[Rfam]
RNA sequence: CACGUCAGCGCAAGUUGAUGUCGUGGUAGCAAAUUGCAUCCUAGAGGGCGCGAUUUGUUGCCAUGUCAGCAACUCGCGUUGACGUGG
Numbered sequence: 001c002a003c004g005u006c007a008g009c010g011c012a013a014g015u016u017g018a019u020g021u022c023g024u025g026g027u028a029g030c031a032a033a034u035u036g037c038a039u040c041c042u043a044g045a046g047g048g049c050g051c052g053a054u055u056u057g058u059u060g061c062c063a064u065g066u067c068a069g070c071a072a073c074u075c076g077c078g079u080u081g082a083c084g085u086g087g
Stems, first nucleotide, its partner, number of pairs: 001086011013074005019068002023064015040047002